[Rfam]
RNA sequence: AAUGAUAGUUUGAGCACUUUUCAUUAUAGGUCAUAUGGGACUUUUUGUAUAUACUCAAAAAGGCUCCAUAAUUUCCAUGGUGGAUUUACCCACUACAGAAAUUAUAGAGCC
Numbered sequence: 001a002a003u004g005a006u007a008g009u010u011u012g013a014g015c016a017c018u019u020u021u022c023a024u025u026a027u028a029g030g031u032c033a034u035a036u037g038g039g040a041c042u043u044u045u046u047g048u049a050u051a052u053a054c055u056c057a058a059a060a061a062g063g064c065u066c067c068a069u070a071a072u073u074u075c076c077a078u079g080g081u082g083g084a085u086u087u088a089c090c091c092a093c094u095a096c097a098g099a100a101a102u103u104a105u106a107g108a109g110c111c
Stems, first nucleotide, its partner, number of pairs: 001025005008017002028043005062111005068105008078095006
Rfam assigns this 111-nucleotide RNA sequence from Streptococcus thermophilus to the family "Streptococcus RNA 266". For this family Rfam cites "Identification of 88 regulatory small RNAs in the TIGR4 strain of the human pathogen Streptococcus pneumoniae" (Acebo et al., RNA, 2012). The pairing is the family consensus, mapped onto this sequence. By type it is a small RNA. The organism belongs to Streptococcus thermophilus, within Bacteria.